This 71-nucleotide RNA sequence from Alligator mississippiensis belongs to the Rfam family "Mammalian CPEB3 ribozyme". The source organism's lineage runs through Eukaryota, Chordata, Amniota, Alligatoridae and Alligator. Rfam links the family to the GO term RNA nuclease activity. The family's consensus secondary structure is taken from published work.
[Rfam]
RNA sequence: AAAUGCCAUAACGGCCACAGCAGAAGCACGUCGCGGCCCUGUCGGAUUCUAGCAAAUCUGCAAAUUUGGCU
Numbered sequence: 001a002a003a004u005g006c007c008a009u010a011a012c013g014g015c016c017a018c019a020g021c022a023g024a025a026g027c028a029c030g031u032c033g034c035g036g037c038c039c040u041g042u043c044g045g046a047u048u049c050u051a052g053c054a055a056a057u058c059u060g061c062a063a064a065u066u067u068g069g070c071u
Stems, first nucleotide, its partner, number of pairs: 013038004019071003023067003026034002043060006